[Rfam]
RNA sequence: ACUGCGGAUUCCGAAAAGCAAAAAGAGUAGGAA
Numbered sequence: 001a002c003u004g005c006g007g008a009u010u011c012c013g014a015a016a017a018g019c020a021a022a023a024a025g026a027g028u029a030g031g032a033a
Stems, first nucleotide, its partner, number of pairs: 003020003010032003
DUF805b RNA: a 33-nucleotide sequence. The base pairs follow the family's consensus structure, which is taken from published work.